[Rfam]
RNA sequence: UGUCAAGCGCUUACUAUGUGCCAGGCACUGUUAUUAACAGUGCCUGGCACAUAGUAAGCGCUUGACA
Numbered sequence: 001u002g003u004c005a006a007g008c009g010c011u012u013a014c015u016a017u018g019u020g021c022c023a024g025g026c027a028c029u030g031u032u033a034u035u036a037a038c039a040g041u042g043c044c045u046g047g048c049a050c051a052u053a054g055u056a057a058g059c060g061c062u063u064g065a066c067a
Stems, first nucleotide, its partner, number of pairs: 001067029
mir-3116 microRNA precursor family: a 67-nucleotide RNA sequence from Ornithorhynchus anatinus. Gene Ontology terms of the family: miRNA-mediated post-transcriptional gene silencing and RISC complex. The base pairs follow the family's consensus structure, which was predicted with RNAalifold. Taxonomically the source falls in Ornithorhynchus (Eukaryota, Craniata, Euteleostomi, Mammalia). Rfam 15.1 lists 40 matches to the family in 12 species.